[Rfam]
RNA sequence: ACCUGAACUCCGGGGUGCUGCCAUGGGGCGGCUGAGAUCAUACCCGUAUAACUUGAUGCAGGUAAUACUGACGCAAGGAAAAGUGCACAGGCGCAGA
Numbered sequence: 001a002c003c004u005g006a007a008c009u010c011c012g013g014g015g016u017g018c019u020g021c022c023a024u025g026g027g028g029c030g031g032c033u034g035a036g037a038u039c040a041u042a043c044c045c046g047u048a049u050a051a052c053u054u055g056a057u058g059c060a061g062g063u064a065a066u067a068c069u070g071a072c073g074c075a076a077g078g079a080a081a082a083g084u085g086c087a088c089a090g091g092c093g094c095a096g097a
Stems, first nucleotide, its partner, number of pairs: 007084003011046004016040001017032005052077004059070003
Record summary:
This 97-nucleotide sequence from Prosthecochloris sp. CIB 2401 belongs to the Rfam family "TPP riboswitch aptamer (THI element)". The source organism's lineage runs through Bacteria, Chlorobiia, Chlorobiales, Chlorobiaceae and Prosthecochloris. The match comes from Rfam's covariance-model search (59 bits). Its family is annotated with thiamine pyrophosphate binding in the Gene Ontology.